Background: Rfam assigns this 360-nucleotide RNA from Oleidesulfovibrio alaskensis to the family "transfer-messenger RNA". Clan: tRNA clan. It is one of the family's seed sequences. Pairs were carried over by alignment from the consensus structure, which is taken from published work.

Nucleotides: 360
Base pairs, nucleotide, nucleotide: 001356002355003354004353005352006351007350020329021328022327023326024325025324026323027322033317034316037312038311039310040309043303044302045301046300047299048066049065050064051063052062054077055076056075057074058073059072116136117135118134119132120131121130122129123128138172139171140170141169142168144166145165146164147163154186155185157183158182159181160180188221190219191218192217193216194215195214203236240278241277242276243275244274246272248270251264252263253262255295256294257293258292259291260290261289333349334348335347336346337345
Number, partner (000 for none) and nucleotide at each position: 001356g002355g003354g004353g005352g006351c007350g008000c009000a010000c011000u012000g013000g014000u015000u016000u017000c018000g019000a020329c021328g022327g023326g024325g025324a026323u027322a028000a029000a030000g031000a032000a033317g034316c035000c036000g037312g038311a039310g040309u041000g042000g043303c044302a045301g046300g047299u048066c049065g050064a051063g052062g053000c054077g055076c056075c057074g058073c059072u060000g061000g062052c063051c064050u065049c066048g067000u068000u069000a070000a071000a072059a073058g074057c075056g076055g077054c078000a079000c080000a081000a082000a083000u084000g085000u086000a087000a088000u089000u090000g091000c092000c093000a094000a095000c096000a097000a098000c099000g100000a101000u102000u103000a104000c105000g106000a107000a108000u109000a110000c111000g112000c113000a114000a115000u116136g117135g118134c119132a120131g121130c122129c123128u124000a125000a126000u127000u128123a129122g130121g131120c132119u133000u134118g135117c136116c137000g138172c139171a140170c141169u142168g143000a144166u145165u146164g147163g148000c149000u150000g151000a152000c153000g154186u155185c156000a157183g158182a159181u160180a161000c162000g163147c164146c165145g166144a167000c168142c169141a170140g171139u172138g173000a174000c175000a176000a177000a178000c179000u180160u181159a182158u183157c184000c185155g186154a187000c188221u189000g190219g191218c192217a193216c194215c195214c196000a197000a198000a199000g200000c201000c202000g203236u204000c205000u206000g207000u208000c209000g210000c211000a212000g213000c214195g215194g216193g217192u218191g219190u220000a221188a222000g223000a224000u225000u226000u227000u228000u229000u230000a231000a232000g233000a234000c235000a236203g237000a238000c239000u240278u241277g242276c243275c244274g245000c246272c247000g248270g249000u250000a251264g252263c253262c254000c255295g256294a257293u258292c259291a260290g261289g262253g263252g264251c265000a266000u267000c268000a269000c270248c271000g272246g273000a274244u275243g276242g277241c278240g279000a280000g281000c282000u283000u284000g285000a286000a287000u288000a289261c290260c291259u292258g293257a294256u295255c296000u297000a298000a299047a300046c301045c302044u303043g304000u305000a306000g307000a308000a309040g310039c311038u312037u313000c314000g315000a316034g317033u318000g319000g320000a321000c322027u323026g324025u325024u326023c327022u328021c329020g330000g331000a332000c333349g334348c335347g336346g337345g338000u339000u340000c341000g342000a343000u344000u345337c346336c347335c348334g349333c350007c351006g352005c353004c354003u355002c356001c357000a358000c359000c360000a